The family of this 120-nucleotide RNA from Myotis davidii is "Small nucleolar RNA SNORA61". It scores 116 bits against the family's covariance model. From the family's description: ACA61 is a member of the H/ACA class of snoRNA that guide the sites of modification of uridines to pseudouridines. The base pairs follow the family's consensus structure, which was predicted with PFOLD. By type it is an H/ACA-box small nucleolar RNA.

Nucleotides: 120
Stems, first nucleotide, its partner, number of pairs: 003059005019047005025040004076108007
Number, partner (000 for none) and nucleotide at each position: 001000a002000c003059c004058c005057u006056c007055c008000a009000a010000u011000u012000c013000c014000c015000u016000u017000u018000c019047c020046c021045a022044u023043c024000g025040g026039a027038u028037c029000u030000g031000a032000a033000c034000a035000c036000c037028g038027g039026u040025c041000u042000u043023g044022g045021u046020g047019g048000u049000c050000g051000c052000a053000g054000a055007g056006g057005a058004g059003g060000a061000a062000a063000a064000g065000u066000a067000a068000u069000a070000g071000u072000g073000a074000a075000g076108c077107u078106g079105g080104c081103u082102u083000c084000a085000c086000a087000g088000u089000g090000c091000c092000u093000c094000c095000a096000g097000c098000c099000u100000g101000u102082g103081g104080g105079c106078u107077a108076g109000u110000u111000u112000c113000a114000a115000a116000c117000a118000g119000g120000g